[Rfam]
RNA sequence: AGAUGAGAUAAUGAAUGAUUAAUUUACCUACUGGUUUGAUUGGUAACAUGAUGGCCUAAAUACUGAACCGAAUCUGAUCAUCC
Number, nucleotide and partner (000 for none) at each position: 001a000002g082003a081004u080005g079006a000007g000008a000009u000010a000011a000012u000013g000014a000015a000016u000017g000018a000019u000020u000021a000022a000023u000024u000025u000026a000027c000028c000029u000030a000031c000032u000033g000034g000035u000036u000037u000038g000039a000040u000041u000042g056043g055044u054045a000046a000047c000048a000049u000050g000051a000052u000053g000054g044055c043056c042057u000058a000059a000060a000061u000062a000063c000064u000065g000066a000067a000068c000069c000070g000071a000072a000073u000074c000075u000076g000077a000078u000079c005080a004081u003082c002083c000

Rfam assigns this 83-nucleotide RNA from Triticum aestivum to the family "Small nucleolar RNA Z102/R77". On this family, see Barneche et al., J Mol Biol 2001: "Identification of 66 box C/D snoRNAs in Arabidopsis thaliana: extensive gene duplications generated multiple isoforms predicting new ribosomal RNA 2'-O-methylation sites". Its Rfam clan is "SNORD44 clan". The organism belongs to Triticum, within Eukaryota. Rfam classes the family as a C/D-box small nucleolar RNA. The family has 9 seed sequences and 1,346 matches in Rfam 15.1.